[Rfam]
Nucleotides: 167
Stems, first nucleotide, its partner, number of pairs: 001016003005012002028167001030165002036159001042153005047147005063142006074134003079129006085113004091106004
Number, partner (000 for none) and nucleotide at each position: 001016a002015a003014g004000g005012u006011c007000g008000u009000g010000a011006g012005g013000a014003c015002u016001u017000g018000u019000c020000u021000g022000g023000a024000g025000g026000a027000a028167g029000c030165c031164g032000g033000a034000g035000c036159g037000c038000a039000a040000a041000a042153g043152u044151g045150c046149g047147a048146g049145g050144c051143g052000a053000c054000g055000g056000a057000c058000a059000g060000a061000a062000a063142c064141u065140g066139c067138a068137u069000a070000g071000a072000a073000g074134g075133c076132c077000u078000g079129g080128u081127c082126u083125g084124c085113g086112g087111g088110c089000g090000a091106g092105u093104u094103g095000g096000c097000a098000c099000c100000c101000c102000a103094u104093g105092a106091c107000g108000a109000a110088g111087c112086c113085c114000a115000c116000c117000g118000g119000a120000u121000a122000c123000g124084g125083c126082g127081g128080a129079c130000a131000a132076g133075g134074u135000a136000a137068a138067u139066g140065c141064a142063g143051c144050g145049c146048u147047u148000g149046u150045g151044c152043a153042c154000g155000g156000a157000a158000a159036c160000a161000u162000c163000g164031c165030g166000u167028u